[Rfam]
RNA: SAM riboswitch aptamer (S box leader)
Organism: Taibaiella sp. KBW10
RNA sequence: UACUUAUUCAGAAAGGUAGAGGGAUAUGGCCCGACGACACCUUGACAACCUGCUUCGCGAAAGUGAAGUAAGGUGCCAACUCCAACUUGCAGGAAUGCAAGAACGAUAAGUU
Numbered sequence: 001u002a003c004u005u006a007u008u009c010a011g012a013a014a015g016g017u018a019g020a021g022g023g024a025u026a027u028g029g030c031c032c033g034a035c036g037a038c039a040c041c042u043u044g045a046c047a048a049c050c051u052g053c054u055u056c057g058c059g060a061a062a063g064u065g066a067a068g069u070a071a072g073g074u075g076c077c078a079a080c081u082c083c084a085a086c087u088u089g090c091a092g093g094a095a096u097g098c099a100a101g102a103a104c105g106a107u108a109a110g111u112u
Stems, first nucleotide, its partner, number of pairs: 002111007013043005021032003027084003044077001046075002049073002051070006086101006